[Rfam]
RNA: Small nucleolar RNA SNORA49
RNA sequence: CUUCCUCACUCUGGCUCCAGGGGCUUUAUUUCAUCUGUGAAGUGCCCUGGUGUUGCCUGAGGAUGGACAAGGAAGCACACGUCCGUCCCCACUCACGCUCUGUUUUCUUCUGGGGCCUCCACGUUGAGCUGACAGU
Numbered sequence: 001c002u003u004c005c006u007c008a009c010u011c012u013g014g015c016u017c018c019a020g021g022g023g024c025u026u027u028a029u030u031u032c033a034u035c036u037g038u039g040a041a042g043u044g045c046c047c048u049g050g051u052g053u054u055g056c057c058u059g060a061g062g063a064u065g066g067a068c069a070a071g072g073a074a075g076c077a078c079a080c081g082u083c084c085g086u087c088c089c090c091a092c093u094c095a096c097g098c099u100c101u102g103u104u105u106u107c108u109u110c111u112g113g114g115g116c117c118u119c120c121a122c123g124u125u126g127a128g129c130u131g132a133c134a135g136u
Stems, first nucleotide, its partner, number of pairs: 003063006011055001017050006023043005074130003078126002087115005095108001097106001